DUF805b RNA: a 33-nucleotide RNA. Pairs were carried over by alignment from the consensus structure, which is taken from published work.
[Rfam]
RNA sequence: AUAGGGGACGCCGAAAACCUUACAGAGUAGGCA
Numbered sequence: 001a002u003a004g005g006g007g008a009c010g011c012c013g014a015a016a017a018c019c020u021u022a023c024a025g026a027g028u029a030g031g032c033a
Stems, first nucleotide, its partner, number of pairs: 003020003010032003